[Rfam]
RNA: Small nucleolar RNA snR43
Organism: Lachancea waltii
RNA sequence: CCCUCCUAUUUCUGCCCCACAUUCUUUACGCUACCAUAGAAUAAUGGGUUCUAUUAAUGGAGAAGAGAAAGCCUGCUAACGCAUUACCUACACUUUUGAUACAACCGUGGGUUUUUGUGUUGACAGGAUCGUGUGUAAGGGCCAAACACCUUUAAGAUUAGCUAAUUAUCUUAGAGAUAUGGUGCUUCACUACAUUU
Number, nucleotide and partner (000 for none) at each position: 001c000002c000003c062004u061005c060006c059007u000008a000009u000010u000011u000012c000013u000014g000015c000016c048017c047018c046019a045020c000021a042022u041023u040024c039025u038026u000027u000028a000029c000030g000031c000032u000033a000034c000035c000036a000037u000038a025039g024040a023041a022042u021043a000044a000045u019046g018047g017048g016049u000050u000051c000052u000053a000054u000055u000056a000057a000058u000059g006060g005061a004062g003063a000064a000065g000066a000067g000068a000069a000070a000071g000072c127073c126074u125075g124076c000077u122078a121079a120080c119081g118082c117083a116084u000085u000086a112087c111088c110089u109090a108091c107092a000093c000094u000095u000096u000097u000098g000099a000100u000101a000102c000103a000104a000105c000106c000107g091108u090109g089110g088111g087112u086113u000114u000115u000116u083117g082118u081119g080120u079121u078122g077123a000124c075125a074126g073127g072128a000129u000130c000131g000132u000133g190134u189135g188136u000137a000138a000139g185140g000141g183142c182143c181144a000145a000146a000147c000148a000149c000150c176151u175152u174153u173154a172155a000156g000157a169158u000159u168160a167161g166162c000163u000164a000165a000166u161167u160168a159169u157170c000171u000172u154173a153174g152175a151176g150177a000178u000179a000180u000181g143182g142183u141184g000185c139186u000187u000188c135189a134190c133191u000192a000193c000194a000195u000196u000197u000